RNA sequence: UGUAUUCCUUAUCUGUUAUCUGUUUCUAAUGAUUGUUUUGGAGCCUACCUUCCCGUCAUACCCUUUGACGUUCAGCCGGUCAUGACUGGAAGAUAGGCCCUCACUGUUGUUGCCGCUAGUGCCCUCAGU
Dot-bracket structure: .(((........................(((........((.(((((.(..((.((.((..(................)..)).)).))..).))))).)))).).....)))................
Numbered sequence: 001u002g003u004a005u006u007c008c009u010u011a012u013c014u015g016u017u018a019u020c021u022g023u024u025u026c027u028a029a030u031g032a033u034u035g036u037u038u039u040g041g042a043g044c045c046u047a048c049c050u051u052c053c054c055g056u057c058a059u060a061c062c063c064u065u066u067g068a069c070g071u072u073c074a075g076c077c078g079g080u081c082a083u084g085a086c087u088g089g090a091a092g093a094u095a096g097g098c099c100c101u102c103a104c105u106g107u108u109g110u111u112g113c114c115g116c117u118a119g120u121g122c123c124c125u126c127a128g129u
Stems, first nucleotide, its partner, number of pairs: 002113003029105001030103002040101002043098005049092001052089002055086002058083002062079001
This 129-nucleotide sequence from Photorhabdus laumondii belongs to the Rfam family "tp2". The family's consensus secondary structure was predicted with RNAalifold.